[Rfam]
RNA sequence: AGAAAAGUAGGUGCCGCCCCGCACAGGGGCGACGCGUGAAGCACGCUAACGUAACGCGGAUGCCAGCGCAAAGGCAAAAAAAACCCAACACGCGUGAACGGCAA
Numbered sequence: 001a002g003a004a005a006a007g008u009a010g011g012u013g014c015c016g017c018c019c020c021g022c023a024c025a026g027g028g029g030c031g032a033c034g035c036g037u038g039a040a041g042c043a044c045g046c047u048a049a050c051g052u053a054a055c056g057c058g059g060a061u062g063c064c065a066g067c068g069c070a071a072a073g074g075c076a077a078a079a080a081a082a083a084c085c086c087a088a089c090a091c092g093c094g095u096g097a098a099c100g101g102c103a104a
Base pairs, nucleotide, nucleotide: 011069012068013067014066015031016030017029018028019027020026089096090095